[Rfam]
RNA sequence: AAUAUAAAGUAGGAACAGGCGGCCUUUACCAUAAGGCGCAGCCGGGCAGCAAGCAGCAGGAAAGCCUGCGGGACCUAU
Numbered sequence: 001a002a003u004a005u006a007a008a009g010u011a012g013g014a015a016c017a018g019g020c021g022g023c024c025u026u027u028a029c030c031a032u033a034a035g036g037c038g039c040a041g042c043c044g045g046g047c048a049g050c051a052a053g054c055a056g057c058a059g060g061a062a063a064g065c066c067u068g069c070g071g072g073a074c075c076u077a078u
Base pairs, nucleotide, nucleotide: 010077011076012075013074016072018043019042020041022037023036024035025034026033046054047053056069057068058067059066060065
Record summary:
The record is a 78-nucleotide RNA from Sporomusa sphaeroides, which matches "NiCo (Nickel/Cobalt) riboswitch aptamer" in Rfam. The match comes from Rfam's covariance-model search (43 bits). Its family is annotated with metal ion homeostasis and cobalt ion binding in the Gene Ontology. Its Rfam clan is "NiCo_riboswitches". The organism belongs to Sporomusa sphaeroides, within Bacteria.